This 145-nucleotide RNA sequence belongs to the Rfam family "RT-14 RNA". The family's consensus secondary structure is taken from published work.
RNA sequence: CUCUACCUUCUAAGUCAGAUGUUGUAUACCUACCGGGUAUACUUCCAGUACAGAGGUGUAAAGGAUUCCGUUUCCUUGCUGUAUAGCAAAAAGUAAAUCAUGUGACUGCCGGCGGUAGAGAAAAUUCGAGGCUCGCAAUGCACAU
Numbered sequence: 001c002u003c004u005a006c007c008u009u010c011u012a013a014g015u016c017a018g019a020u021g022u023u024g025u026a027u028a029c030c031u032a033c034c035g036g037g038u039a040u041a042c043u044u045c046c047a048g049u050a051c052a053g054a055g056g057u058g059u060a061a062a063g064g065a066u067u068c069c070g071u072u073u074c075c076u077u078g079c080u081g082u083a084u085a086g087c088a089a090a091a092a093g094u095a096a097a098u099c100a101u102g103u104g105a106c107u108g109c110c111g112g113c114g115g116u117a118g119a120g121a122a123a124a125u126u127c128g129a130g131g132c133u134c135g136c137a138a139u140g141c142a143c144a145u
Base pairs, nucleotide, nucleotide: 003058005057006056007055008054009053014051015050021045024042025041026040027039028038029037078087079086080085100145101144102143103142104141107137108136109135111133112132118127119126